[Rfam]
RNA: Mason-Pfizer monkey virus packaging signal
Organism: Nannospalax galili
RNA sequence: UGGCGCCCAACGUGGGGCCUGGAUACUGGGGACAAUGUAAGCGUCCGACAACGGAGGAAAAAGGGGUGCGCACUGCUCAAAUAAUUCGGAGACGCCACGGGAGCCUGCCGUGGGAGCCUGCCGCGACUGAGCCGAAGGUAAGUUGGUCGUUCAAUCAUGGGGCAAGAAUUAAGCUAGCAUCAGAUUUAUGUGAUACAGUUAAUAGAAGCUCUACAGGCAAGAGGAGUAAAGGUUAAAACUGAGGAUUUAUUUCAAUUCUUUGAUUUUGUAAAGGACAUUUGUCCUU
Numbered sequence: 001u002g003g004c005g006c007c008c009a010a011c012g013u014g015g016g017g018c019c020u021g022g023a024u025a026c027u028g029g030g031g032a033c034a035a036u037g038u039a040a041g042c043g044u045c046c047g048a049c050a051a052c053g054g055a056g057g058a059a060a061a062a063g064g065g066g067u068g069c070g071c072a073c074u075g076c077u078c079a080a081a082u083a084a085u086u087c088g089g090a091g092a093c094g095c096c097a098c099g100g101g102a103g104c105c106u107g108c109c110g111u112g113g114g115a116g117c118c119u120g121c122c123g124c125g126a127c128u129g130a131g132c133c134g135a136a137g138g139u140a141a142g143u144u145g146g147u148c149g150u151u152c153a154a155u156c157a158u159g160g161g162g163c164a165a166g167a168a169u170u171a172a173g174c175u176a177g178c179a180u181c182a183g184a185u186u187u188a189u190g191u192g193a194u195a196c197a198g199u200u201a202a203u204a205g206a207a208g209c210u211c212u213a214c215a216g217g218c219a220a221g222a223g224g225a226g227u228a229a230a231g232g233u234u235a236a237a238a239c240u241g242a243g244g245a246u247u248u249a250u251u252u253c254a255a256u257u258c259u260u261u262g263a264u265u266u267u268g269u270a271a272a273g274g275a276c277a278u279u280u281g282u283c284c285u286u
Stems, first nucleotide, its partner, number of pairs: 006031003012026003036050003094139003104131001105129001109125005148162001150161004170213002173209003221261007230248005271286006